[Rfam]
RNA sequence: ACACGGGCUUGGAUUUAUGGCAGGCCCGUCUCCCUGGGUCUCUCAUAGUGUUCCGUGCCAGAGCACCCUGCUGGAACCAUUGCCCAGCCUCCACCUGUGGACUGCAGGCACUGAAGCAGGCCGUAAAGUG
Dot-bracket structure: .(((((((......((((((.(((((.........)).))).)))))).)))).))).............((.....((...(((((.((........)).)))..))...))....)....).......
This 130-nucleotide RNA sequence from Phyllostomus discolor belongs to the Rfam family "Small nucleolar RNA SNORA42/SNORA80 family". Rfam 15.1 lists 1,535 matches to the family in 183 species. By type it is an H/ACA-box small nucleolar RNA. It scores 105 bits against the family's covariance model. Rfam's curators write: The members of this family belong to the H/ACA class of snoRNAs that guide the sites of modification of uridines to pseudouridines. The literature on the family includes a 2006 paper in RNA by Schattner et al., "A computational screen for mammalian pseudouridylation guide H/ACA RNAs".